[Rfam]
RNA: Mahella-1 RNA
RNA sequence: GCCAGGCCGUCAUAAAAGCACAAGCCAAUGUGCUUCCCUCUAAAGAGGUUGACGGCGAGCGGUAUCAUGCUGAAAGGAAGCAGGGGUACCGCAGACGCCGACCAUCCCCAAAGCGGGAGG
Numbered sequence: 001g002c003c004a005g006g007c008c009g010u011c012a013u014a015a016a017a018g019c020a021c022a023a024g025c026c027a028a029u030g031u032g033c034u035u036c037c038c039u040c041u042a043a044a045g046a047g048g049u050u051g052a053c054g055g056c057g058a059g060c061g062g063u064a065u066c067a068u069g070c071u072g073a074a075a076g077g078a079a080g081c082a083g084g085g086g087u088a089c090c091g092c093a094g095a096c097g098c099c100g101a102c103c104a105u106c107c108c109c110a111a112a113g114c115g116g117g118a119g120g
Stems, first nucleotide, its partner, number of pairs: 037048004059092008068082003098116003